SAM (S-adenosyl methionine) riboswitch aptamer: a 116-nucleotide sequence from Intrasporangium calvum. The source organism's lineage runs through Bacteria, Bacillati, Actinomycetota, Intrasporangium and Intrasporangium calvum. Gene Ontology terms of the family: regulation of gene expression and S-adenosylmethionine metabolic process. For this family Rfam cites "The aptamer core of SAM-IV riboswitches mimics the ligand-binding site of SAM-I riboswitches" (Weinberg et al., RNA, 2008).
RNA sequence: GGUCAUGAGUGUCAGCGUCACGGCCCCGGCUCGCUGACCGGCAACCCUCGCUACGCGGCGGGGUGCCCCGGGUGAAGACCUGGCACCCGGCAUUCGCCGGCGUGCAAGCGCGAGUG
Numbered sequence: 001g002g003u004c005a006u007g008a009g010u011g012u013c014a015g016c017g018u019c020a021c022g023g024c025c026c027c028g029g030c031u032c033g034c035u036g037a038c039c040g041g042c043a044a045c046c047c048u049c050g051c052u053a054c055g056c057g058g059c060g061g062g063g064u065g066c067c068c069c070g071g072g073u074g075a076a077g078a079c080c081u082g083g084c085a086c087c088c089g090g091c092a093u094u095c096g097c098c099g100g101c102g103u104g105c106a107a108g109c110g111c112g113a114g115u116g
Stems, first nucleotide, its partner, number of pairs: 001080004009039001011038006022031002040067003045063003049058001083105004087100005